[Rfam]
RNA sequence: AGGUUUGAAGAGCACUGAGUUGUUUGUCUAGACUAGCCAAGCUCUGGAAAGAAUGUUGUAUCUCUGAGAAGAAAAAGAAUGGGGCAUGCUGAUUUAAAAACAGAAAAUGCAAAGUUGGACUGAAAAUAUCCUUACUCUUGCAAGCAAUCUGCUUAAGCAUUCCAAACUUACCUUAAUGUGGUGAGAGAAUAAGCUGCCCUAUUUUUCUUUUCUUCUUCCCCUUCUUCAUUUUCUACAACUGGAACCAGCCAUUUCCCAAAACCAGCACCAUG
Numbered sequence: 001a002g003g004u005u006u007g008a009a010g011a012g013c014a015c016u017g018a019g020u021u022g023u024u025u026g027u028c029u030a031g032a033c034u035a036g037c038c039a040a041g042c043u044c045u046g047g048a049a050a051g052a053a054u055g056u057u058g059u060a061u062c063u064c065u066g067a068g069a070a071g072a073a074a075a076a077g078a079a080u081g082g083g084g085c086a087u088g089c090u091g092a093u094u095u096a097a098a099a100a101c102a103g104a105a106a107a108u109g110c111a112a113a114g115u116u117g118g119a120c121u122g123a124a125a126a127u128a129u130c131c132u133u134a135c136u137c138u139u140g141c142a143a144g145c146a147a148u149c150u151g152c153u154u155a156a157g158c159a160u161u162c163c164a165a166a167c168u169u170a171c172c173u174u175a176a177u178g179u180g181g182u183g184a185g186a187g188a189a190u191a192a193g194c195u196g197c198c199c200u201a202u203u204u205u206u207c208u209u210u211u212c213u214u215c216u217u218c219c220c221c222u223u224c225u226u227c228a229u230u231u232u233c234u235a236c237a238a239c240u241g242g243a244a245c246c247a248g249c250c251a252u253u254u255c256c257c258a259a260a261a262c263c264a265g266c267a268c269c270a271u272g
Base pairs, nucleotide, nucleotide: 046256047255048254049253050252066217067216068215069214070213071212072211073210074209075208076206077205079202080201081200082199083198084197085196086195088194089193090192093189094188095187101151102150103149104148108146109145110144115143116142117141119139122137123136167185168184169183170182171181172180
Voltage-gated potassium-channel Kv1.4 IRES: a 272-nucleotide RNA sequence from Jaculus jaculus. Rfam classes the family as an internal ribosome entry site. Rfam describes the family as follows. This family represents the Kv1.4 voltage-gated potassium-channel internal ribosome entry site (IRES). This region has been shown to mediate internal ribosome entry in cells derived from brain, heart, and skeletal muscle, tissues known to express Kv1.4 mRNA species. Lineage of the source: Eukaryota > Amniota > Glires > Myomorpha > Jaculus. A reference for the family is Jang et al. (2004), "Structurally distinct elements mediate internal ribosome entry within the 5'-noncoding region of a voltage-gated potassium channel mRNA", J Biol Chem.